[Rfam]
RNA: Staphylococcus sRNA71 small RNA
Organism: Staphylococcus succinus
RNA sequence: AAUUGUUAUAUUAUAGAUGUAGUUGAAAAUCAACUACUAGUCUUUUAUAUUCAUGAACAUAUUACUCUUAGGCGACACAAAUGUGUCGUCUUUUUUCAA
Numbered sequence: 001a002a003u004u005g006u007u008a009u010a011u012u013a014u015a016g017a018u019g020u021a022g023u024u025g026a027a028a029a030u031c032a033a034c035u036a037c038u039a040g041u042c043u044u045u046u047a048u049a050u051u052c053a054u055g056a057a058c059a060u061a062u063u064a065c066u067c068u069u070a071g072g073c074g075a076c077a078c079a080a081a082u083g084u085g086u087c088g089u090c091u092u093u094u095u096u097c098a099a
Base pairs, nucleotide, nucleotide: 003056004055005054006053008051012049013048014047015046016045017044019037020036021035022034023033024032025031070091071090072089073088074087075086076085077084